Description:
This 59-nucleotide RNA from Turicibacter sp. H121 belongs to the Rfam family "Fluoride riboswitch aptamer (crcB RNA motif)". Pairs were carried over by alignment from the consensus structure, which is taken from published work. A search with the family's covariance model found it, with a score of 59 bits.
[Rfam]
RNA sequence: UAUUGAAUAGGCGAUGGAGUUCGCCAUUAACCGCGAAAGCUAAUGACUCCUACUCUUUA
Number, nucleotide and partner (000 for none) at each position: 001u000002a000003u000004u000005g000006a000007a000008u000009a000010g025011g024012c023013g022014a000015u000016g050017g049018a048019g047020u046021u045022c013023g012024c011025c010026a000027u000028u000029a000030a000031c000032c000033g040034c039035g000036a000037a000038a000039g034040c033041u000042a000043a000044u000045g021046a020047c019048u018049c017050c016051u000052a000053c000054u000055c000056u000057u000058u000059a000
Description:
Gene Ontology terms of the family: response to fluoride and positive regulation of gene expression. Taxonomically the source falls in Turicibacter (Bacteria, Bacillati, Erysipelotrichia, Erysipelotrichales).